[Rfam]
RNA sequence: UGGGUGCUGGACCUGCCGGCACCACAGACCGGCUGCUGUGCUGCACCUGUGACUGACGCCAGGAUGCAGAGAAAGGGGCUAUUUCUAUGCUCAGUGCCCAAAGCAGUGGGCACUGGGAAUGGUUUGUAACCUGACAUGC
Numbered sequence: 001u002g003g004g005u006g007c008u009g010g011a012c013c014u015g016c017c018g019g020c021a022c023c024a025c026a027g028a029c030c031g032g033c034u035g036c037u038g039u040g041c042u043g044c045a046c047c048u049g050u051g052a053c054u055g056a057c058g059c060c061a062g063g064a065u066g067c068a069g070a071g072a073a074a075g076g077g078g079c080u081a082u083u084u085c086u087a088u089g090c091u092c093a094g095u096g097c098c099c100a101a102a103g104c105a106g107u108g109g110g111c112a113c114u115g116g117g118a119a120u121g122g123u124u125u126g127u128a129a130c131c132u133g134a135c136a137u138g139c
Stems, first nucleotide, its partner, number of pairs: 004065002007062004024050004077131002085122003090117002095112006
Dot-bracket structure: ...((.((((.............((((...................))))........)))).))...........((......(((..((...((((((......))))))...))..))).......))........
The family of this 139-nucleotide RNA sequence from Pipistrellus kuhlii is "Small nucleolar RNA SNORA43".
ACA43 is a member of the H/ACA class of snoRNA that guide the sites of modification of uridines to pseudouridines.
A search with the family's covariance model found it, with a score of 107 bits.
Rfam links the family to the GO terms nucleolus and RNA processing.